[Rfam]
RNA sequence: GAGGCGGUAUCGAUUGCUCGAACUGCACUCUUGCAAUAUCAGUCUAAUUUUAUGGACGUAGUAAUUUGCAUUGAAACUGAUUGCAGUUACGUUGGAUUCUGCUCUGAGCCGAGAGGACCGAGACAGAAGG
Number, nucleotide and partner (000 for none) at each position: 001g030002a029003g028004g026005c025006g024007g023008u022009a000010u021011c020012g000013a000014u000015u000016g000017c000018u000019c000020g011021a010022a008023c007024u006025g005026c004027a000028c003029u002030c001031u000032u000033g000034c000035a000036a000037u000038a000039u000040c000041a000042g000043u000044c000045u000046a000047a000048u000049u000050u000051u000052a000053u000054g000055g000056a000057c000058g000059u000060a000061g000062u000063a000064a000065u000066u000067u000068g000069c000070a000071u000072u000073g000074a000075a000076a000077c000078u000079g000080a000081u000082u000083g000084c000085a000086g000087u000088u000089a000090c000091g000092u000093u000094g000095g000096a000097u000098u000099c126100u125101g124102c122103u121104c120105u000106g118107a000108g000109c116110c115111g000112a000113g000114a000115g110116g109117a000118c106119c000120g104121a103122g102123a000124c101125a100126g099127a000128a000129g000130g000
Rfam assigns this 130-nucleotide RNA sequence from Paenibacillus pini to the family "pan motif". Pairs were carried over by alignment from the consensus structure, which is taken from published work. A search with the family's covariance model found it, with a score of 40 bits. The source organism's lineage runs through Bacteria, Bacillota, Bacilli, Caryophanales and Paenibacillus pini. It is annotated as a cis-regulatory element.